SAM-III riboswitch aptamer (SMK box): an 80-nucleotide sequence from Atopobacter sp. AH10.
[Rfam]
RNA sequence: CAAAGUAUAGACCUGUCCCGAUAGGAUUCUUUAUUUAUAAAGAAGAUGCCUUGUAACCAUAAAAGGGGGAAAAGAAAAUG
Numbered sequence: 001c002a003a004a005g006u007a008u009a010g011a012c013c014u015g016u017c018c019c020g021a022u023a024g025g026a027u028u029c030u031u032u033a034u035u036u037a038u039a040a041a042g043a044a045g046a047u048g049c050c051u052u053g054u055a056a057c058c059a060u061a062a063a064a065g066g067g068g069g070a071a072a073a074g075a076a077a078a079u080g
Stems, first nucleotide, its partner, number of pairs: 016070004023051003027044005057066002

Description: Its family is annotated with methionine adenosyltransferase activity and regulation of translational initiation in the Gene Ontology. Pairs were carried over by alignment from the consensus structure, which is taken from published work.